[Rfam]
RNA: c-di-AMP riboswitch aptamer (ydaO/yuaA leader)
RNA sequence: GGGUCUCCCCCGCCGAGUCCGGAGUCCUUCGCCGGAGCCGGGGAACCACUUGGGAGCGCGCCCACCGCGCUCCCCGGGCCGAGUCGGGGCCGCGCUCCCUGGGGCGCAUCCCGUAGGGCAGCCUUCCGUGGCCCGAGGCCGUCAGCUCACCUGGUAGGCGGUUGCCGGAAGGAAGG
Dot-bracket structure: ..........((((...(((((.........)))))((((((....(............................)(((.....((((.....................))))..((((...........))))...))).........)))))).))))................
Numbered sequence: 001g002g003g004u005c006u007c008c009c010c011c012g013c014c015g016a017g018u019c020c021g022g023a024g025u026c027c028u029u030c031g032c033c034g035g036a037g038c039c040g041g042g043g044a045a046c047c048a049c050u051u052g053g054g055a056g057c058g059c060g061c062c063c064a065c066c067g068c069g070c071u072c073c074c075c076g077g078g079c080c081g082a083g084u085c086g087g088g089g090c091c092g093c094g095c096u097c098c099c100u101g102g103g104g105c106g107c108a109u110c111c112c113g114u115a116g117g118g119c120a121g122c123c124u125u126c127c128g129u130g131g132c133c134c135g136a137g138g139c140c141g142u143c144a145g146c147u148c149a150c151c152u153g154g155u156a157g158g159c160g161g162u163u164g165c166c167g168g169a170a171g172g173a174a175g176g
Stems, first nucleotide, its partner, number of pairs: 011160004018036005037155006047076001077140003085113004116134004